RNA sequence: UUUUUUAACGGCGAUGAAGUCCGCCUCCAACCGCCACGUAUCGUGACUGAUGACUUCUACCGGGGA
Dot-bracket structure: .........[[[[..((((((]]]].......(.((.......)).)....)))))).........